[Rfam]
RNA: SL2 RNA
Organism: Angiostrongylus costaricensis
RNA sequence: GGUUUUCGCCCAGUACCGCAAGGUACUGCGCGUGUCGAGCCGUUCAUUCGUGGUCGUGCUGCAAACCGAAAUUUUUGGAAUGCCGCACCGGGGUUAUCCGGUGAGGCGAA
Dot-bracket structure: ......(((...((((......))))...)..)).(.(((((.((......)).)).))))......................(((..((.((....))..))..)))..